[Rfam]
The family of this 118-nucleotide sequence from Cytobacillus horneckiae is "PyrR binding site". This family represents the PyrR binding site and terminator structure. This RNA structure is found upstream of a variety of genes involved in pyrimidine biosynthesis and transport. The alignment also includes a portion of the antiterminator structure.

RNA sequence: AGCCCUUUUUAAAUGCAGUCCAGAGAGGCUGACAAAGGGGAUUAUAAGCAAUGAAUGGCUCCAGUUCAUUGCUGUAUCCACAACCCCCUUUGUCGACAUGCAAAGAGGGUUUUUUAAU
Dot-bracket structure: ..(((((((......(((((......)))))..)))))))...(((((((((((((.......)))))))))).)))..(.(((((.((((((......)))))).))))).).....
Numbered sequence: 001a002g003c004c005c006u007u008u009u010u011a012a013a014u015g016c017a018g019u020c021c022a023g024a025g026a027g028g029c030u031g032a033c034a035a036a037g038g039g040g041a042u043u044a045u046a047a048g049c050a051a052u053g054a055a056u057g058g059c060u061c062c063a064g065u066u067c068a069u070u071g072c073u074g075u076a077u078c079c080a081c082a083a084c085c086c087c088c089u090u091u092g093u094c095g096a097c098a099u100g101c102a103a104a105g106a107g108g109g110u111u112u113u114u115u116a117a118u
Stems, first nucleotide, its partner, number of pairs: 003040007016031005044077003047073010080113001082111005088105006
Rfam classes the family as a cis-regulatory element. Pairs were carried over by alignment from the consensus structure, which is taken from published work.